A. fumigatus sRNA Afu_309: a 287-nucleotide RNA from Mollisia scopiformis.
For this family Rfam cites "Small ncRNA transcriptome analysis from Aspergillus fumigatus suggests a novel mechanism for regulation of protein synthesis" (Jochl et al., Nucleic Acids Res, 2008).
The family has 10 seed sequences and 663 matches in Rfam 15.1.

RNA sequence: UUUCUUUCCACAAACACAGAUCUGUGCCCAGCAGUCCCUUCAGCUCCGGUUGUAAGGUCGAUUGCUGCGGCAGUUCGAUCGUUCUAUGGAGCCAUCAACCUUCACCGGUAACUCAUGAUGUCAAUCAUCCGAUCGACAGAUCUCAGAAUGAUCGGUCACUCACGAAGCCUGAAUUCGCCGCGAGGUUUGAGUUCGGUGGACGAGUGCUCUGAAGGACGUUAAUUCCGUUUCGAUACCGAAUGGCCGUUGGCUGAUGAGGUUUUCGACAAACCUAGCUUCCUACAUGA
Number, nucleotide and partner (000 for none) at each position: 001u000002u000003u000004c000005u000006u000007u000008c000009c000010a000011c000012a000013a000014a000015c000016a000017c000018a143019g142020a141021u140022c139023u138024g137025u136026g071027c070028c069029c067030a066031g065032c000033a063034g062035u061036c060037c057038c056039u055040u054041c000042a051043g050044c049045u000046c000047c000048g000049g044050u043051u042052g000053u000054a040055a039056g038057g037058u000059c000060g036061a035062u034063u033064g000065c031066u030067g029068c000069g028070g027071c026072a000073g000074u000075u000076c000077g000078a000079u000080c135081g134082u000083u132084c131085u000086a000087u123088g122089g121090a000091g119092c000093c117094a116095u115096c000097a000098a000099c000100c000101u000102u000103c000104a000105c000106c000107g000108g000109u000110a000111a000112c000113u000114c000115a095116u094117g093118a000119u091120g000121u089122c088123a087124a000125u000126c000127a000128u000129c000130c000131g084132a083133u000134c081135g080136a025137c024138a023139g022140a021141u020142c019143u018144c000145a000146g000147a000148a000149u000150g000151a000152u000153c000154g209155g208156u000157c206158a205159c204160u203161c202162a000163c000164g000165a000166a000167g000168c000169c000170u000171g194172a193173a192174u191175u190176c189177g188178c185179c184180g000181c000182g000183a000184g179185g178186u000187u000188u177189g176190a175191g174192u173193u172194c171195g000196g000197u000198g000199g000200a000201c000202g161203a160204g159205u158206g157207c000208u155209c154210u000211g000212a000213a000214g280215g279216a278217c000218g276219u275220u274221a273222a000223u000224u000225c000226c000227g000228u000229u000230u266231c265232g264233a263234u000235a260236c259237c258238g000239a000240a000241u000242g252243g251244c250245c249246g000247u000248u000249g245250g244251c243252u242253g000254a000255u000256g000257a000258g237259g236260u235261u000262u000263u233264c232265g231266a230267c000268a000269a000270a000271c000272c000273u221274a220275g219276c218277u000278u216279c215280c214281u000282a000283c000284a000285u000286g000287a000

A search with the family's covariance model found it, with a score of 140 bits.